[Rfam]
RNA sequence: AGACAUUUUGACGGGUUUCGCGAUUUGCGAACAGUCUAACGGAUUGUGUUCGUUGUCGACGAAACCUGCCUUAAGCCC
Numbered sequence: 001a002g003a004c005a006u007u008u009u010g011a012c013g014g015g016u017u018u019c020g021c022g023a024u025u026u027g028c029g030a031a032c033a034g035u036c037u038a039a040c041g042g043a044u045u046g047u048g049u050u051c052g053u054u055g056u057c058g059a060c061g062a063a064a065c066c067u068g069c070c071u072u073a074a075g076c077c078c
Base pairs, nucleotide, nucleotide: 002077004075006073012068013067014066015065016064017063018062019061020060029051030050031049032048033047
RNA: mir-981 microRNA precursor family